[Rfam]
RNA sequence: AAGGGGCACUCUGGAAAGCCGGUGGCCGCGCCACCGCACCGACGGGGUCAAGGGCCGGACAAGCCCGAAUCUCUCAGGUCCACAGACAGAGGGGGGUCA
Numbered sequence: 001a002a003g004g005g006g007c008a009c010u011c012u013g014g015a016a017a018g019c020c021g022g023u024g025g026c027c028g029c030g031c032c033a034c035c036g037c038a039c040c041g042a043c044g045g046g047g048u049c050a051a052g053g054g055c056c057g058g059a060c061a062a063g064c065c066c067g068a069a070u071c072u073c074u075c076a077g078g079u080c081c082a083c084a085g086a087c088a089g090a091g092g093g094g095g096g097u098c099a
Base pairs, nucleotide, nucleotide: 007093009091010090011089012088013087020036021035022034023033038079039078040077041075042074045073046072047071052066053065054064055063
The family of this 99-nucleotide RNA sequence from Acidocella aromatica is "Glycine riboswitch aptamer".
About the family: This family represents the bacterial glycine riboswitch.
Lineage of the source: Bacteria > Pseudomonadati > Acetobacterales > Acidocellaceae > Acidocella.